[Rfam]
RNA sequence: ACCUCUUUGGUCCAGUGGUUCUAAAUAGUUCAACAGUCUACCAAAAUUGUGAAAUGUUUAGGACCACUUGAUCAGCG
Dot-bracket structure: .............((((((.((.((((.((((.................)))).)))).)).)))))).........
Numbered sequence: 001a002c003c004u005c006u007u008u009g010g011u012c013c014a015g016u017g018g019u020u021c022u023a024a025a026u027a028g029u030u031c032a033a034c035a036g037u038c039u040a041c042c043a044a045a046a047u048u049g050u051g052a053a054a055u056g057u058u059u060a061g062g063a064c065c066a067c068u069u070g071a072u073c074a075g076c077g
Stems, first nucleotide, its partner, number of pairs: 014068006021061002024058004029053004
Record summary: The record is a 77-nucleotide sequence from Hucho hucho, which matches "mir-203 microRNA precursor family" in Rfam. Rfam 15.1 lists 1,049 matches to the family in 464 species. A search with the family's covariance model found it, with a score of 81 bits. The family's consensus secondary structure was predicted with RNAalifold.